[Rfam]
RNA: Small nucleolar RNA SNORA71
Organism: Pseudonaja textilis
RNA sequence: ACCUGCAUCGAAAGUGAUUUUGGUCUUAUUUGUGGCCUGGUCAUUGAUAGUGCAGGAAAAACAUCCUUGAGAGCAUUUCCCGUGUUUGGAGGAUUCCUUUAUUUCCUACCAAACCCUGAGCUUUUCAGACA
Numbered sequence: 001a002c003c004u005g006c007a008u009c010g011a012a013a014g015u016g017a018u019u020u021u022g023g024u025c026u027u028a029u030u031u032g033u034g035g036c037c038u039g040g041u042c043a044u045u046g047a048u049a050g051u052g053c054a055g056g057a058a059a060a061a062c063a064u065c066c067u068u069g070a071g072a073g074c075a076u077u078u079c080c081c082g083u084g085u086u087u088g089g090a091g092g093a094u095u096c097c098u099u100u101a102u103u104u105c106c107u108a109c110c111a112a113a114c115c116c117u118g119a120g121c122u123u124u125u126c127a128g129a130c131a
Stems, first nucleotide, its partner, number of pairs: 002056007013045007022037004066128001068127006084114005090107004